[Rfam]
RNA sequence: AUACGAACCCGGGAAGGGCGGAGACCCGGCACCGCCCUUCCCGCUGGAGGCCCCGACCUCGCGUCGGGGCCUCUUUUUUUG
Numbered sequence: 001a002u003a004c005g006a007a008c009c010c011g012g013g014a015a016g017g018g019c020g021g022a023g024a025c026c027c028g029g030c031a032c033c034g035c036c037c038u039u040c041c042c043g044c045u046g047g048a049g050g051c052c053c054c055g056a057c058c059u060c061g062c063g064u065c066g067g068g069g070c071c072u073c074u075u076u077u078u079u080u081g
Stems, first nucleotide, its partner, number of pairs: 010043009048072008058063001

Bradyrhizobiaceae sRNA BjrC68: an 81-nucleotide sequence from Rhodoplanes roseus. A reference for the family is Madhugiri et al. (2012), "Small RNAs of the Bradyrhizobium/Rhodopseudomonas lineage and their analysis", RNA Biol. By type it is a small RNA. NCBI's taxonomy places the organism under Bacteria, Pseudomonadati, Alphaproteobacteria, Nitrobacteraceae, Rhodoplanes.